This 77-nucleotide RNA from Jaculus jaculus belongs to the Rfam family "mir-3473 microRNA precursor family".

RNA sequence: CCUACUAAGCCAUCUCCCCAGCCCUGAAAUAAUUUUUUUUUUUAAAAAAAGAAAGGCUGGAGAGAUGGCUUAGUGGU
Numbered sequence: 001c002c003u004a005c006u007a008a009g010c011c012a013u014c015u016c017c018c019c020a021g022c023c024c025u026g027a028a029a030u031a032a033u034u035u036u037u038u039u040u041u042u043u044a045a046a047a048a049a050a051g052a053a054a055g056g057c058u059g060g061a062g063a064g065a066u067g068g069c070u071u072a073g074u075g076g077u
Stems, first nucleotide, its partner, number of pairs: 002076015018060006
Gene Ontology terms of the family: RISC complex, miRNA-mediated post-transcriptional gene silencing and cellular response to mechanical stimulus.